[Rfam]
A member of the RNA family "Small nucleolar RNA snoR53Y" from Taxus chinensis, 75 nucleotides long. Rfam 15.1 lists 513 matches to the family in 230 species. For this family Rfam cites "Multiple snoRNA gene clusters from Arabidopsis" (Brown et al., RNA, 2001). Gene Ontology terms of the family: RNA processing and nucleolus.
RNA sequence: AUUUCCAGGGAUGUUAUAGGUUAUUACCAUGUUAAUUCUGAUUUCAUGACGAGUUACAGAUUAGCUGAGGAAAUC
Number, nucleotide and partner (000 for none) at each position: 001a074002u073003u072004u071005c070006c000007a000008g000009g000010g000011a000012u000013g000014u000015u000016a000017u000018a000019g000020g000021u000022u000023a000024u000025u000026a000027c000028c000029a000030u000031g000032u000033u000034a000035a000036u000037u000038c000039u000040g000041a000042u000043u000044u000045c000046a000047u000048g000049a000050c000051g000052a000053g000054u000055u000056a000057c000058a000059g000060a000061u000062u000063a000064g000065c000066u000067g000068a000069g000070g005071a004072a003073a002074u001075c000